This 91-nucleotide RNA from Anisodus acutangulus belongs to the Rfam family "mir-395 microRNA precursor family".
A search with the family's covariance model found it, with a score of 63 bits.
About the family: mir-395 was identified in both Arabidopsis thaliana and Oryza sativa computationally and was later experimentally verified. mir-395 is thought to target mRNAs coding for ATP sulphurylases. The mature sequence is excised from the 3' arm of the hairpin.
Rfam links the family to the GO terms RISC complex and miRNA-mediated post-transcriptional gene silencing.
RNA sequence: GUGUUCCCUAGAGUUCCCUUGACCGCUUCAUGAUGGAUUACUUUGUCAUUUGAAGCCCUACUGAAGUGUUUGGGGGAACUCCCGGAUUCAC
Number, nucleotide and partner (000 for none) at each position: 001g000002u000003g000004u000005u000006c000007c085008c084009u000010a000011g081012a080013g079014u078015u077016c076017c075018c074019u073020u072021g000022a071023c000024c068025g067026c066027u065028u064029c063030a062031u000032g000033a059034u000035g057036g000037a000038u000039u000040a000041c000042u000043u000044u000045g000046u000047c000048a000049u000050u000051u000052g000053a000054a000055g000056c000057c035058c000059u033060a000061c000062u030063g029064a028065a027066g026067u025068g024069u000070u000071u022072g020073g019074g018075g017076g016077a015078a014079c013080u012081c011082c000083c000084g008085g007086a000087u000088u000089c000090a000091c000